Description: U2 spliceosomal RNA: a 189-nucleotide RNA from Conger conger. On this family, see Berglund et al., RNA 2001: "Crystal structure of a model branchpoint-U2 snRNA duplex containing bulged adenosines". Its Rfam clan is "U2 clan". Lineage of the source: Eukaryota > Opisthokonta > Chordata > Congrinae > Conger. Pairs were carried over by alignment from the consensus structure, which is taken from published work. Rfam's curators write: U2 is a small nuclear RNA (snRNA) component of the spliceosome (involved in pre-mRNA splicing). Complementary binding between U2 snRNA (in an area lying towards the 5' end but 3' to hairpin I) and the branchpoint sequence (BPS) of the intron results the bulging out of an unpaired adenosine, on the BPS, which initiates a nucleophilic attack at the intronic 5' splice site, thus starting the first of two transesterification reactions that mediate splicing.

[Rfam]
RNA sequence: AUGUAUUUGUGUAAGUAUUUAAUAAAAAAAAAUAAAAUCUGUUCUUAUCAGUUUAAUAUCUGAUACGUCCCCUAUCAGGGACUAUAUAUUAAACGGAUUUUUGGCACAGGGAGUCGGAGAAGGAGCUUGCUCUGUCCGCUUCAAGCAUCGACCCGUUAUUGCAGUGCGUUCGGGAACGGUGCUCUCCAA
Numbered sequence: 001a002u003g004u005a006u007u008u009g010u011g012u013a014a015g016u017a018u019u020u021a022a023u024a025a026a027a028a029a030a031a032a033u034a035a036a037a038u039c040u041g042u043u044c045u046u047a048u049c050a051g052u053u054u055a056a057u058a059u060c061u062g063a064u065a066c067g068u069c070c071c072c073u074a075u076c077a078g079g080g081a082c083u084a085u086a087u088a089u090u091a092a093a094c095g096g097a098u099u100u101u102u103g104g105c106a107c108a109g110g111g112a113g114u115c116g117g118a119g120a121a122g123g124a125g126c127u128u129g130c131u132c133u134g135u136c137c138g139c140u141u142c143a144a145g146c147a148u149c150g151a152c153c154c155g156u157u158a159u160u161g162c163a164g165u166g167c168g169u170u171c172g173g174g175a176a177c178g179g180u181g182c183u184c185u186c187c188a189a
Stems, first nucleotide, its partner, number of pairs: 007025003014020001046065006067082005110142005116136002122133004145182006152174004